This 142-nucleotide RNA sequence from Paenibacillus graminis belongs to the Rfam family "Group II catalytic intron D1-D4-4". Rfam's curators write: Group II introns are found in rRNA, tRNA and mRNA of organelles in fungi, plants and protists, and also in mRNA in bacteria. It scores 94 bits against the family's covariance model.
[Rfam]
RNA sequence: UAGCCGGUGAAAGUCCGGUCGCGGGAGGGACCAAGCCCCCGUGUAGCUAGGAUACCUGCAUAUGGCGAAAUCUGUGUGCAGAAGCGUAUCGACGAAUGUUUUGUCAGAGACAAAGCGAGCAACAUGCCAGGCCGUAACAUCA
Numbered sequence: 001u002a003g004c005c006g007g008u009g010a011a012a013g014u015c016c017g018g019u020c021g022c023g024g025g026a027g028g029g030a031c032c033a034a035g036c037c038c039c040c041g042u043g044u045a046g047c048u049a050g051g052a053u054a055c056c057u058g059c060a061u062a063u064g065g066c067g068a069a070a071u072c073u074g075u076g077u078g079c080a081g082a083a084g085c086g087u088a089u090c091g092a093c094g095a096a097u098g099u100u101u102u103g104u105c106a107g108a109g110a111c112a113a114a115g116c117g118a119g120c121a122a123c124a125u126g127c128c129a130g131g132c133c134g135u136a137a138c139a140u141c142a
Base pairs, nucleotide, nucleotide: 020043021042022041023040024039051090052089053088054087055086056081057080058079059078060077061076065072098116100114101113102112103111104110119135120134